[Rfam]
A member of the RNA family "c-di-GMP-I riboswitch aptamer" from Paenibacillus sabuli, 89 nucleotides long.
RNA sequence: GCACUAAUAGGGCAAACCUUUCGAAAGAUGGGGGCGCAAAGCCACGGGCCUAAAGCAGGGGAAUCUGCUAUGGCAGCCGGGUUGCACCA
Numbered sequence: 001g002c003a004c005u006a007a008u009a010g011g012g013c014a015a016a017c018c019u020u021u022c023g024a025a026a027g028a029u030g031g032g033g034g035c036g037c038a039a040a041g042c043c044a045c046g047g048g049c050c051u052a053a054a055g056c057a058g059g060g061g062a063a064u065c066u067g068c069u070a071u072g073g074c075a076g077c078c079g080g081g082u083u084g085c086a087c088c089a
Stems, first nucleotide, its partner, number of pairs: 012037002017032003021028002040083004045079003048074003055068004
NCBI's taxonomy places the organism under Bacteria, Bacillota, Bacilli, Caryophanales, Paenibacillus.